This 171-nucleotide RNA sequence from Kribbella voronezhensis belongs to the Rfam family "Actinobacteria sRNA Ms_IGR-5".
[Rfam]
RNA sequence: ACACGCGAAGGGAGGUGGUCCAACGCAUGAAUUGCAAUCGGACUCGUGAGGUGGCGGCGGGCUGACCGCCAACCACUAAUCAGUGGGCAAGUGGUCGGCCAGUUCAACGCCAGCCACCGGACCCGUGGACAGUCAGGAAAGUCCGCCUGACCCCGAGCUCGGCCACCCGGU
Numbered sequence: 001a002c003a004c005g006c007g008a009a010g011g012g013a014g015g016u017g018g019u020c021c022a023a024c025g026c027a028u029g030a031a032u033u034g035c036a037a038u039c040g041g042a043c044u045c046g047u048g049a050g051g052u053g054g055c056g057g058c059g060g061g062c063u064g065a066c067c068g069c070c071a072a073c074c075a076c077u078a079a080u081c082a083g084u085g086g087g088c089a090a091g092u093g094g095u096c097g098g099c100c101a102g103u104u105c106a107a108c109g110c111c112a113g114c115c116a117c118c119g120g121a122c123c124c125g126u127g128g129a130c131a132g133u134c135a136g137g138a139a140a141g142u143c144c145g146c147c148u149g150a151c152c153c154c155g156a157g158c159u160c161g162g163c164c165a166c167c168c169g170g171u
Base pairs, nucleotide, nucleotide: 015058016057018055019054060100061099062098063097064096065095066094068092069091073086074085075084121171122170123169125167126165127164128163130161132151133150134149135148136147137146
The base pairs follow the family's consensus structure. It is annotated as a small RNA.